[Rfam]
RNA sequence: GGUAGUAGCAAAUAUUCAAAUGAGAACUUUGAAGACCGAAGUGGGGAAGGUUUCCAUGUGAACAGCAAUUGGACAUGGGUUAGCCGAUCCUAAGAGACAGGGAAGCUCCGCACACGCAGACAUUGUCUCGUCUCUCGAAAGGGAAUGGAGUUAAUAUUCUCCAGCCAGGACGUGGAUACUGAAUGGCAACAUAAACGAACUCGGUAACGUGAGAGGCGGCCCUGGGAAGCGUUGUCUUUUCUUUUUAACGGUCUAUUACCCUGAAAUCAGUUUGUCUGGAGAUAGGGUUAAUUGACCGGUAAAGCAUCUUGUUAUUCGAGAUGUCCGGUGCGCUGUCGCUCACCCUUGAAAAACCGAGGGAAUGUUUUAUUCGCACCCCUGUUCGUACCAAUAUCCGCAUCAGGUCUCCAAGGUUAGCAGCCUCUGGUCGA
Numbered sequence: 001g002g003u004a005g006u007a008g009c010a011a012a013u014a015u016u017c018a019a020a021u022g023a024g025a026a027c028u029u030u031g032a033a034g035a036c037c038g039a040a041g042u043g044g045g046g047a048a049g050g051u052u053u054c055c056a057u058g059u060g061a062a063c064a065g066c067a068a069u070u071g072g073a074c075a076u077g078g079g080u081u082a083g084c085c086g087a088u089c090c091u092a093a094g095a096g097a098c099a100g101g102g103a104a105g106c107u108c109c110g111c112a113c114a115c116g117c118a119g120a121c122a123u124u125g126u127c128u129c130g131u132c133u134c135u136c137g138a139a140a141g142g143g144a145a146u147g148g149a150g151u152u153a154a155u156a157u158u159c160u161c162c163a164g165c166c167a168g169g170a171c172g173u174g175g176a177u178a179c180u181g182a183a184u185g186g187c188a189a190c191a192u193a194a195a196c197g198a199a200c201u202c203g204g205u206a207a208c209g210u211g212a213g214a215g216g217c218g219g220c221c222c223u224g225g226g227a228a229g230c231g232u233u234g235u236c237u238u239u240u241c242u243u244u245u246u247a248a249c250g251g252u253c254u255a256u257u258a259c260c261c262u263g264a265a266a267u268c269a270g271u272u273u274g275u276c277u278g279g280a281g282a283u284a285g286g287g288u289u290a291a292u293u294g295a296c297c298g299g300u301a302a303a304g305c306a307u308c309u310u311g312u313u314a315u316u317c318g319a320g321a322u323g324u325c326c327g328g329u330g331c332g333c334u335g336u337c338g339c340u341c342a343c344c345c346u347u348g349a350a351a352a353a354c355c356g357a358g359g360g361a362a363u364g365u366u367u368u369a370u371u372c373g374c375a376c377c378c379c380u381g382u383u384c385g386u387a388c389c390a391a392u393a394u395c396c397g398c399a400u401c402a403g404g405u406c407u408c409c410a411a412g413g414u415u416a417g418c419a420g421c422c423u424c425u426g427g428u429c430g431a
Stems, first nucleotide, its partner, number of pairs: 015033006034429004043409004049389002054078006063071002085385003089142002094136002098110001100109003119132003146163005166381004172376003176371001183192003200358006209343004215337006222328003225245005249298005258288006267279004305323007395404002411423004